[Rfam]
RNA: A. fumigatus sRNA Afu_309
RNA sequence: CUCAUGAACAACAUUACGGAUCUGUGUCCAGCGAUCCUGUUCACGAAGAUGUCUGCUCCGCAAGGACGGCCUGAUUUGUGUUUCGGUUGAUUGCUGGACAGUUCGACGUUAUACGGAGGCACUGAUUAAUGCUUGGUGUCUAUUAUUUCCGGUCGACAGAUCUCAGAUCAAAUGUCGGCGUUGGGUAUCACUCUGGUCUUGAGCUCCCGUUUAGGUGAUGUUCGGCUGGAUGGCCUGAUGUCGGCGGCGCCAUAUUCCUGAUCUCUUCACCGAAUCGACCGUUGGUCGCUGAGGUUAGAGACUAACCAUGGCUUGCCAACAUUC
Dot-bracket structure: .................((((((((((((((.(((((((..((.((..(.(((.(.(((....))))))).)..))..))...)))..)))).)))))).......((.(....((.(.(..............).).))...........).))))))))))..........(.(...((((((.........((((..((((((((.....)).)).))))))))......))))))).)...((((((((........(((((..(((.....((((...)))).....))).)))))......)))))..))).......